[Rfam]
RNA sequence: AGAGUCAGCCAAACAAACACAAGUUGCAAGUGUUGGAGACUCAUUCUAGUCUUGUUA
Numbered sequence: 001a002g003a004g005u006c007a008g009c010c011a012a013a014c015a016a017a018c019a020c021a022a023g024u025u026g027c028a029a030g031u032g033u034u035g036g037a038g039a040c041u042c043a044u045u046c047u048a049g050u051c052u053u054g055u056u057a
Base pairs, nucleotide, nucleotide: 002041009036010035012034013031014030019055020054021053022052023051
The family of this 57-nucleotide sequence from Hubei polero-like virus 1 is "Exoribonuclease-resistant RNA (xrRNA) plant-infecting virus (class 3)". Pairs were carried over by alignment from the consensus structure, which is taken from published work. Rfam describes the family as follows. Exoribonuclease-resistant RNA (xrRNA) plant-infecting virus (class 3) is a ncRNA that was reported in Plant viruses. NCBI's taxonomy places the organism under Viruses, Riboviria.